[Rfam]
RNA sequence: UAUUAGGUUGGUGCAAAAGUAAUUGUGGGUUUGGCCAUUCCUUUUAAUAACCAAACCCACAAUUACUUUUGCACCAACCUAAUA
Numbered sequence: 001u002a003u004u005a006g007g008u009u010g011g012u013g014c015a016a017a018a019g020u021a022a023u024u025g026u027g028g029g030u031u032u033g034g035c036c037a038u039u040c041c042u043u044u045u046a047a048u049a050a051c052c053a054a055a056c057c058c059a060c061a062a063u064u065a066c067u068u069u070u071g072c073a074c075c076a077a078c079c080u081a082a083u084a
Stems, first nucleotide, its partner, number of pairs: 001084034037048003